[Rfam]
RNA: Guanidine-I riboswitch aptamer
Organism: Nitrosovibrio sp. Nv17
RNA sequence: CCAAAGCGAAACUAGGGUUCCGGCUCCCGUCUCAGGGAGCGUUCAGGACCGAGGGUUUCCGGCUUCGUCAUGACGAGGCUCCACGGAGGGAUAAAAGCCCGGGAGAU
Number, nucleotide and partner (000 for none) at each position: 001c000002c000003a000004a000005a000006g000007c000008g059009a058010a057011a056012c055013u000014a000015g050016g049017g000018u000019u000020c047021c046022g044023g040024c039025u038026c037027c036028c035029g000030u000031c000032u000033c000034a000035g028036g027037g026038a025039g024040c023041g000042u000043u000044c022045a000046g021047g020048a000049c016050c015051g000052a000053g000054g000055g012056u011057u010058u009059c008060c000061g080062g079063c078064u077065u076066c075067g074068u073069c000070a000071u000072g000073a068074c067075g066076a065077g064078g063079c062080u061081c000082c102083a000084c105085g000086g000087a000088g100089g099090g098091a000092u000093a000094a000095a000096a000097g000098c090099c089100c088101g000102g082103g000104a000105g084106a000107u000